[Rfam]
The record is a 79-nucleotide RNA sequence, which matches "L4-Archaeoglobi ribosomal protein leades" in Rfam. The family's RNA type in Rfam is cis-regulatory leader. Rfam's curators put it in the seed alignment. For this family Rfam cites "Discovery of 20 novel ribosomal leader candidates in bacteria and archaea" (Eckert and Weinberg, BMC Microbiol, 2020).
RNA sequence: CUGACCAGGAUGCAUGGGUCGACGUUCGUGCAACGAGCCCUCUCCGCCUGCUAAGCCAGGCGGAUGCGCCAAAAGUCAG
Numbered sequence: 001c002u003g004a005c006c007a008g009g010a011u012g013c014a015u016g017g018g019u020c021g022a023c024g025u026u027c028g029u030g031c032a033a034c035g036a037g038c039c040c041u042c043u044c045c046g047c048c049u050g051c052u053a054a055g056c057c058a059g060g061c062g063g064a065u066g067c068g069c070c071a072a073a074a075g076u077c078a079g
Stems, first nucleotide, its partner, number of pairs: 001079005009070001011068003016040003023035004043064008